[Rfam]
RNA sequence: UCCCGAGCUGCAACGCCAAAAAAGGUAGUUGCAGGAAGGGGCUACACGCCCUGCCAUCACGGCAAGAGCCUGCAGCAAGCAGCAUUGCUAUGAAAUACAGCCAUGACAGCAAGUAGUGAAAACGAACGUUUGAAAUGGCAGUGAAAAGUAAACGGUGCGCGGGGCUACUGAGC
Numbered sequence: 001u002c003c004c005g006a007g008c009u010g011c012a013a014c015g016c017c018a019a020a021a022a023a024g025g026u027a028g029u030u031g032c033a034g035g036a037a038g039g040g041g042c043u044a045c046a047c048g049c050c051c052u053g054c055c056a057u058c059a060c061g062g063c064a065a066g067a068g069c070c071u072g073c074a075g076c077a078a079g080c081a082g083c084a085u086u087g088c089u090a091u092g093a094a095a096u097a098c099a100g101c102c103a104u105g106a107c108a109g110c111a112a113g114u115a116g117u118g119a120a121a122a123c124g125a126a127c128g129u130u131u132g133a134a135a136u137g138g139c140a141g142u143g144a145a146a147a148g149u150a151a152a153c154g155g156u157g158c159g160c161g162g163g164g165c166u167a168c169u170g171a172g173c
Stems, first nucleotide, its partner, number of pairs: 001041004008034007048165007055157003067149001071145001073143001100139005107132003116123002
RT-16 RNA: a 173-nucleotide RNA. By type it is a small RNA.